[Rfam]
Shown here is a 130-nucleotide RNA from Pantherophis guttatus, a member of the family "Small nucleolar RNA SNORA22". Rfam 15.1 lists 883 matches to the family in 606 species. The organism belongs to Pantherophis, within Eukaryota. About the family: ACA22 is a member of the H/ACA class of snoRNA that guide the sites of modification of uridines to pseudouridines. The match comes from Rfam's covariance-model search (106 bits). The base pairs follow the family's consensus structure, which was predicted with RNAfold. Rfam classes the family as an H/ACA-box small nucleolar RNA.

RNA sequence: UUGCACAGUGAACACCCAAAUGAGCUUCAUAGUUCCUUUGGCAUAAUUCUGUGCAAGAAUAAACUGUACUUUAACCUCUGCAUUGAAAGGACUUUUUCCUUUUAUAUGUAUUCAAAAGGACAGUACAAUG
Numbered sequence: 001u002u003g004c005a006c007a008g009u010g011a012a013c014a015c016c017c018a019a020a021u022g023a024g025c026u027u028c029a030u031a032g033u034u035c036c037u038u039u040g041g042c043a044u045a046a047u048u049c050u051g052u053g054c055a056a057g058a059a060u061a062a063a064c065u066g067u068a069c070u071u072u073a074a075c076c077u078c079u080g081c082a083u084u085g086a087a088a089g090g091a092c093u094u095u096u097u098c099c100u101u102u103u104a105u106a107u108g109u110a111u112u113c114a115a116a117a118g119g120a121c122a123g124u125a126c127a128a129u130g
Stems, first nucleotide, its partner, number of pairs: 003054006010048001014044001016041005022035001024033003056072003060068002077116001079114002081108003085103007